This 157-nucleotide RNA sequence from Blastococcus sp. TF02A-30 belongs to the Rfam family "c-di-AMP riboswitch aptamer (ydaO/yuaA leader)". A search with the family's covariance model found it, with a score of 78 bits. The source organism's lineage runs through Bacteria, Actinomycetota, Actinomycetes, Geodermatophilales and Blastococcus.
[Rfam]
RNA sequence: GUCCGGGCGCCGCCGAACCCAGGACGGGUGACCGUCCGGGACCGGGGACCCACCGCAGUACUGGGGUGAAUCCUGCGUGCCGAAUUGCCGGCCGCAGGUAGGGCGUCUUCCAGCCCGAAUCCGUCAGCUAACUCGGUAGGCGGCACUGGAAGACAGG
Numbered sequence: 001g002u003c004c005g006g007g008c009g010c011c012g013c014c015g016a017a018c019c020c021a022g023g024a025c026g027g028g029u030g031a032c033c034g035u036c037c038g039g040g041a042c043c044g045g046g047g048a049c050c051c052a053c054c055g056c057a058g059u060a061c062u063g064g065g066g067u068g069a070a071u072c073c074u075g076c077g078u079g080c081c082g083a084a085u086u087g088c089c090g091g092c093c094g095c096a097g098g099u100a101g102g103g104c105g106u107c108u109u110c111c112a113g114c115c116c117g118a119a120u121c122c123g124u125c126a127g128c129u130a131a132c133u134c135g136g137u138a139g140g141c142g143g144c145a146c147u148g149g150a151a152g153a154c155a156g157g
Stems, first nucleotide, its partner, number of pairs: 011142004018040003041137006051063002064122003072098006101116004